[Rfam]
RNA sequence: ACAAUGAUACUUCUCUACGGAGCUGGCGGAGGACCCGGCAGGGGUGGAAGGCCCAUGG
Numbered sequence: 001a002c003a004a005u006g007a008u009a010c011u012u013c014u015c016u017a018c019g020g021a022g023c024u025g026g027c028g029g030a031g032g033a034c035c036c037g038g039c040a041g042g043g044g045u046g047g048a049a050g051g052c053c054c055a056u057g058g
Base pairs, nucleotide, nucleotide: 012055013022014021015020023041024040025039027037028036029035042054043053044052

A member of the RNA family "pemK RNA", 58 nucleotides long. By type it is a cis-regulatory element.